Annotation
The record is a 77-nucleotide RNA sequence from Atrichornis clamosus, which matches "mir-202 microRNA precursor family" in Rfam.

RNA sequence: UUCUUUCCUUUUCCUGUGCAUAUGCCUCUUUGGGAAUUGGUUCUAGAGGAGGUGUGGGGCAUGGAAAAAUGGGGAAA
Number, nucleotide and partner (000 for none) at each position: 001u000002u000003c000004u000005u000006u000007c000008c000009u000010u068011u067012u066013c000014c064015u063016g062017u061018g060019c059020a000021u056022a055023u054024g000025c052026c051027u050028c049029u047030u046031u045032g044033g000034g000035a000036a000037u000038u000039g000040g000041u000042u000043c000044u032045a031046g030047a029048g000049g028050a027051g026052g025053u000054g023055u022056g021057g000058g000059g019060c018061a017062u016063g015064g014065a000066a012067a011068a010069a000070u000071g000072g000073g000074g000075a000076a000077a000

Its family is annotated with RISC complex and miRNA-mediated post-transcriptional gene silencing in the Gene Ontology. The literature on the family includes a 2005 paper in Nat Genet by Bentwich et al., "Identification of hundreds of conserved and nonconserved human microRNAs". It scores 56 bits against the family's covariance model. Rfam 15.1 lists 673 matches to the family in 631 species. The source organism's lineage runs through Eukaryota, Sarcopterygii, Telluraves, Australaves and Atrichornis.